The family of this 132-nucleotide RNA sequence from Nostocoides sp. F2B08 is "FMN riboswitch aptamer (RFN element)". The source organism's lineage runs through Bacteria, Bacillati, Actinomycetota, Actinomycetes and Nostocoides. Pairs were carried over by alignment from the consensus structure, which is taken from published work.
RNA sequence: UAGCGUGCUCCGGGGUCGGUGCAAUUCCGAACCGGUGGUGACAGUCCACGACGUCGAUCGCAGCCAGCGGUCGGGGGAUGCGGUGAAACUCCGCGACCGACGGUGAGAGUCCGGAUGGGAGGCAGCGCGCAG
Dot-bracket structure: ..((((((((......(((.......))).[[((((((.....[[))))..(.(..................).)...(((((.......)))))]])).(((.....]]))).......)..)))))))..